This 72-nucleotide RNA sequence from Pachycephala philippinensis belongs to the Rfam family "tRNA".
RNA sequence: GGGGGGAUAGCUCAGUGGUAGAGCAUUUGACUGCAGAUCAAGAGGGCCCCGGUUCAAAUCCGGGUGGCCCCU
Numbered sequence: 001g002g003g004g005g006g007a008u009a010g011c012u013c014a015g016u017g018g019u020a021g022a023g024c025a026u027u028u029g030a031c032u033g034c035a036g037a038u039c040a041a042g043a044g045g046g047c048c049c050c051g052g053u054u055c056a057a058a059u060c061c062g063g064g065u066g067g068c069c070c071c072u
Stems, first nucleotide, its partner, number of pairs: 001071004007065001010024004026042005048064005